[Rfam]
RNA: Archaeal large subunit ribosomal RNA, nucleotides 671 to 936
Organism: candidate division MSBL1 archaeon SCGC-AAA261D19
RNA sequence: GAGUUCAUCUUCGUGGCGAGGUUAAGGAGUCCACCUCCGGAACCGUAGCGAAAGCAACAAGCCCGCAAUCUCGCUAAGAGACGAGGGGCGAGGUAUUAAACUGCCUGGAGUCACGAGGAUGUGACCCGAAACCAGGCGAUCUAGCCCGGGUCAGGGCGAAGCCGAUCCUCGGAUUGGUGGAGGCCCGAACCGGUCCUGUCGUUCAAUACGGUCGGAUGAAUCUGGGCUAGUGGCGAAAGACCCAUCAAGCCUGGCGAUAGCUGGUU
Numbered sequence: 001g002a003g004u005u006c007a008u009c010u011u012c013g014u015g016g017c018g019a020g021g022u023u024a025a026g027g028a029g030u031c032c033a034c035c036u037c038c039g040g041a042a043c044c045g046u047a048g049c050g051a052a053a054g055c056a057a058c059a060a061g062c063c064c065g066c067a068a069u070c071u072c073g074c075u076a077a078g079a080g081a082c083g084a085g086g087g088g089c090g091a092g093g094u095a096u097u098a099a100a101c102u103g104c105c106u107g108g109a110g111u112c113a114c115g116a117g118g119a120u121g122u123g124a125c126c127c128g129a130a131a132c133c134a135g136g137c138g139a140u141c142u143a144g145c146c147c148g149g150g151u152c153a154g155g156g157c158g159a160a161g162c163c164g165a166u167c168c169u170c171g172g173a174u175u176g177g178u179g180g181a182g183g184c185c186c187g188a189a190c191c192g193g194u195c196c197u198g199u200c201g202u203u204c205a206a207u208a209c210g211g212u213c214g215g216a217u218g219a220a221u222c223u224g225g226g227c228u229a230g231u232g233g234c235g236a237a238a239g240a241c242c243c244a245u246c247a248a249g250c251c252u253g254g255c256g257a258u259a260g261c262u263g264g265u266u
Stems, first nucleotide, its partner, number of pairs: 006121012020044004026038004048055002061089004069081003092105004125264002128261001132254006141230011152218001154186004161178007190215004195211002198209002232242002